Archaeal RNase P: a 324-nucleotide RNA from Methanothermobacter tenebrarum. For this family Rfam cites "The Ribonuclease P Database" (Brown, Nucleic Acids Res, 1999). A search with the family's covariance model found it, with a score of 231 bits. Ribonuclease P (RNase P) is a ubiquitous endoribonuclease, found in archaea, bacteria and eukarya as well as chloroplasts and mitochondria.
RNA sequence: GUAAGCCGAAGGGCAGCUACCGGCCCCCCACCACACACUCAUUGUGUGGGGGGCUGAGGAAACUCCCCCCAUCAUACAGUAUCCACGGUGCCGCAAGGCAUCAGCCGAGAGGCUGGGCUCUGGAGCAGAAACGACACGUCCCCCAUUUGGAUGAUAAUGAGACCCCAACCACUAUAAAGGGGUUGAUUGACAGUGGGGGGAUCGGUGAAACGGCCAACCCGUGGGAUGCAAGGGCAAAUACUGCCUAUGAGUACUGUACGAGGCAGAGGUAGCCCGCCUAGAUAAAUGCUGCCAUGAACAGAAGGGGGGUUACUCUCGGCAUGC
Numbered sequence: 001g002u003a004a005g006c007c008g009a010a011g012g013g014c015a016g017c018u019a020c021c022g023g024c025c026c027c028c029c030a031c032c033a034c035a036c037a038c039u040c041a042u043u044g045u046g047u048g049g050g051g052g053g054c055u056g057a058g059g060a061a062a063c064u065c066c067c068c069c070c071a072u073c074a075u076a077c078a079g080u081a082u083c084c085a086c087g088g089u090g091c092c093g094c095a096a097g098g099c100a101u102c103a104g105c106c107g108a109g110a111g112g113c114u115g116g117g118c119u120c121u122g123g124a125g126c127a128g129a130a131a132c133g134a135c136a137c138g139u140c141c142c143c144c145a146u147u148u149g150g151a152u153g154a155u156a157a158u159g160a161g162a163c164c165c166c167a168a169c170c171a172c173u174a175u176a177a178a179g180g181g182g183u184u185g186a187u188u189g190a191c192a193g194u195g196g197g198g199g200g201a202u203c204g205g206u207g208a209a210a211c212g213g214c215c216a217a218c219c220c221g222u223g224g225g226a227u228g229c230a231a232g233g234g235c236a237a238a239u240a241c242u243g244c245c246u247a248u249g250a251g252u253a254c255u256g257u258a259c260g261a262g263g264c265a266g267a268g269g270u271a272g273c274c275c276g277c278c279u280a281g282a283u284a285a286a287u288g289c290u291g292c293c294a295u296g297a298a299c300a301g302a303a304g305g306g307g308g309g310u311u312a313c314u315c316u317c318g319g320c321a322u323g324c
Base pairs, nucleotide, nucleotide: 001324002323003322005320006319007318008317009316010314011313012293013292014291015290016289017288021056022055023054024053025052026051027050028049029048030047031046061311062310063309065308066307067306068305069304070228071227072226073225075258076257077256078255079254083224084223085222086221087220088101089100090099091098092097102115103114104113105112106111116219117218121216122215123214137204138203140199141198142197143196144195145194146193147192232275233274234273235272241266242265243264244263245262